TPP riboswitch aptamer (THI element): a 105-nucleotide sequence from Acidiphilium rubrum.
RNA sequence: GAUUAUUCCGAGGGGUGCGCCGUCGCGCUGAGAGCCGGGUUUGUCCGGCAACUCUUUGAACCUGAUCCGGGUUGCGCCGGCGGAGGGACGGGAUUUGCCUUUGUU
Numbered sequence: 001g002a003u004u005a006u007u008c009c010g011a012g013g014g015g016u017g018c019g020c021c022g023u024c025g026c027g028c029u030g031a032g033a034g035c036c037g038g039g040u041u042u043g044u045c046c047g048g049c050a051a052c053u054c055u056u057u058g059a060a061c062c063u064g065a066u067c068c069g070g071g072u073u074g075c076g077c078c079g080g081c082g083g084a085g086g087g088a089c090g091g092g093a094u095u096u097g098c099c100u101u102u103g104u105u
Base pairs, nucleotide, nucleotide: 006093007092008091009090010089011055012054013053014052017028018027019026020025035048036047037046038045039044061086062085063084067080068079069078070077
Rfam links the family to the GO term thiamine pyrophosphate binding. Vitamin B(1) in its active form thiamin pyrophosphate (TPP) is an essential coenzyme that is synthesised by coupling of pyrimidine and thiazole moieties in bacteria.